[Rfam]
RNA sequence: CCGUGCAGCCGGGGAGUUAGCGGUGCCCUGUACCUGCAAACCGCUCUAGCAGGGGUGAUAUCUUGCCUCGGGCUAAAUCUGUAGGGCUGCCCUAGGAAAGUGGUGUUGACGUGAGGGUCCUUGCGCAACGGAAAUCUUCGAAUCGUGUCAGGUUGGGAACAAAGCAGCACUAAGGAGAACCUUUCGUGUGAUGUGAGAUUGCCUUUGCUGAGCUGACUACCUAGGUAACGCUUAUGGAGAUAGUACAAAGCAAGAUGCACGG
Numbered sequence: 001c002c003g004u005g006c007a008g009c010c011g012g013g014g015a016g017u018u019a020g021c022g023g024u025g026c027c028c029u030g031u032a033c034c035u036g037c038a039a040a041c042c043g044c045u046c047u048a049g050c051a052g053g054g055g056u057g058a059u060a061u062c063u064u065g066c067c068u069c070g071g072g073c074u075a076a077a078u079c080u081g082u083a084g085g086g087c088u089g090c091c092c093u094a095g096g097a098a099a100g101u102g103g104u105g106u107u108g109a110c111g112u113g114a115g116g117g118u119c120c121u122u123g124c125g126c127a128a129c130g131g132a133a134a135u136c137u138u139c140g141a142a143u144c145g146u147g148u149c150a151g152g153u154u155g156g157g158a159a160c161a162a163a164g165c166a167g168c169a170c171u172a173a174g175g176a177g178a179a180c181c182u183u184u185c186g187u188g189u190g191a192u193g194u195g196a197g198a199u200u201g202c203c204u205u206u207g208c209u210g211a212g213c214u215g216a217c218u219a220c221c222u223a224g225g226u227a228a229c230g231c232u233u234a235u236g237g238a239g240a241u242a243g244u245a246c247a248a249a250g251c252a253a254g255a256u257g258c259a260c261g262g
Stems, first nucleotide, its partner, number of pairs: 001262007008056003011029004016024003033053005061255006070246001072244003078238008088227002092224005100217002102214003111208008120197006126188002129186005135178005145170004153162003
RNA: Bacterial large signal recognition particle RNA
Organism: Eubacterium uniforme